[Rfam]
RNA sequence: AUAUUUCGAUGAUGGUCAAAGCUCAUGGGAAUUGUAGGUCUUUUGGCGUACAAUUUUCGAGGGUUU
Numbered sequence: 001a002u003a004u005u006u007c008g009a010u011g012a013u014g015g016u017c018a019a020a021g022c023u024c025a026u027g028g029g030a031a032u033u034g035u036a037g038g039u040c041u042u043u044u045g046g047c048g049u050a051c052a053a054u055u056u057u058c059g060a061g062g063g064u065u066u
Stems, first nucleotide, its partner, number of pairs: 019066006033052004038047001
Annotation:
Streptococcus sRNA Spd-sr37: a 66-nucleotide sequence from Streptococcus uberis. The literature on the family includes a 2010 paper in J Bacteriol by Tsui et al., "Identification and characterization of noncoding small RNAs in Streptococcus pneumoniae serotype 2 strain D39". Lineage of the source: Bacteria > Lactobacillales > Streptococcaceae > Streptococcus > Streptococcus uberis.